[Rfam]
RNA sequence: AGUAGAGUAAACAUUGCGCGUAAAGUGCUUCAGGAUGGGAAGUUGCCUGUUGACGAAGGAAACCGCGAAAUAUUUCCACGAUGUAAUGUUGCGUCCGCUACU
Numbered sequence: 001a002g003u004a005g006a007g008u009a010a011a012c013a014u015u016g017c018g019c020g021u022a023a024a025g026u027g028c029u030u031c032a033g034g035a036u037g038g039g040a041a042g043u044u045g046c047c048u049g050u051u052g053a054c055g056a057a058g059g060a061a062a063c064c065g066c067g068a069a070a071u072a073u074u075u076c077c078a079c080g081a082u083g084u085a086a087u088g089u090u091g092c093g094u095c096c097g098c099u100a101c102u
Stems, first nucleotide, its partner, number of pairs: 001102005010090009019080003025054002028052001031049004038096003042092001058077004
This 102-nucleotide RNA sequence from Blautia faecicola belongs to the Rfam family "THF (Tetrahydrofolate) riboswitch aptamer". From the family's description: Tetrahydrofolate (THF) riboswitch was first reported for Ames et al. as an RNA motif in 5' untranslated (5'-UTR)regions of folate transport and biosynthesis genes in Firmicutes genomes. NCBI's taxonomy places the organism under Bacteria, Bacillati, Bacillota, Lachnospiraceae, Blautia. Rfam 15.1 lists 747 matches to the family in 747 species. On this family, see Ames et al., Chem Biol 2010: "A eubacterial riboswitch class that senses the coenzyme tetrahydrofolate". The family's consensus secondary structure is taken from published work.